[Rfam]
RNA sequence: UCCCCCACGCCUCUCGACGAUGCGCACUUGGGGGAU
Numbered sequence: 001u002c003c004c005c006c007a008c009g010c011c012u013c014u015c016g017a018c019g020a021u022g023c024g025c026a027c028u029u030g031g032g033g034g035a036u
Base pairs, nucleotide, nucleotide: 001035002034003033004032005031006030008024009023010022

Shown here is a 36-nucleotide sequence from Nocardia farcinica, a member of the family "abiF RNA". The organism belongs to Nocardia farcinica, within Bacteria. The family's RNA type in Rfam is small RNA. Pairs were carried over by alignment from the consensus structure, which is taken from published work. The sequence is in the family's curated seed alignment. Rfam describes the family as follows. Actinobacteria, Bacteroidetes, Clostridia, Proteobacteria, one Clostridia phage.